RNA sequence: GGUGAAGUCACUGGAGGCAGCGGUUCAUCGAUCUGUUCCUGAAUUUGUUUGUGUAAUUAUUUCACAAAACAAGAAUCGGUCGAUAAACCUCUGCAUCCAGCGCUCACUUU
Number, nucleotide and partner (000 for none) at each position: 001g000002g000003u000004g000005a000006a000007g000008u000009c000010a000011c000012u000013g098014g097015a096016g000017g000018c093019a092020g091021c000022g089023g088024u087025u086026c000027a084028u083029c082030g081031a080032u079033c078034u000035g000036u075037u074038c073039c000040u000041g000042a000043a000044u000045u000046u000047g000048u000049u000050u000051g000052u000053g000054u000055a000056a000057u000058u000059a000060u000061u000062u000063c000064a000065c000066a000067a000068a000069a000070c000071a000072a000073g038074a037075a036076u000077c000078g033079g032080u031081c030082g029083a028084u027085a000086a025087a024088c023089c022090u000091c020092u019093g018094c000095a000096u015097c014098c013099a000100g000101c000102g000103c000104u000105c000106a000107c000108u000109u000110u000
RNA: MIR162_1 microRNA precursor family